[Rfam]
RNA sequence: GUGUGGACGGGCUGUGUGCCGGCCCUCAUCUGCGCGGACGACCGUUGUGAUGUACUUCCCCGACGUCACAUCGGCCCGCGCAGGUGGGGCCCCGUACGCAGCCCCUCCGUCACUGU
Numbered sequence: 001g002u003g004u005g006g007a008c009g010g011g012c013u014g015u016g017u018g019c020c021g022g023c024c025c026u027c028a029u030c031u032g033c034g035c036g037g038a039c040g041a042c043c044g045u046u047g048u049g050a051u052g053u054a055c056u057u058c059c060c061c062g063a064c065g066u067c068a069c070a071u072c073g074g075c076c077c078g079c080g081c082a083g084g085u086g087g088g089g090c091c092c093c094g095u096a097c098g099c100a101g102c103c104c105c106u107c108c109g110u111c112a113c114u115g116u
Stems, first nucleotide, its partner, number of pairs: 010103007021092002024089014042074003046070008
This 116-nucleotide sequence from Corynebacterium provencense belongs to the Rfam family "mraW RNA". Rfam 15.1 lists 851 matches to the family in 821 species. The organism belongs to Corynebacterium, within Bacteria. The family's RNA type in Rfam is cis-regulatory element. The family's consensus secondary structure is taken from published work. It scores 56 bits against the family's covariance model.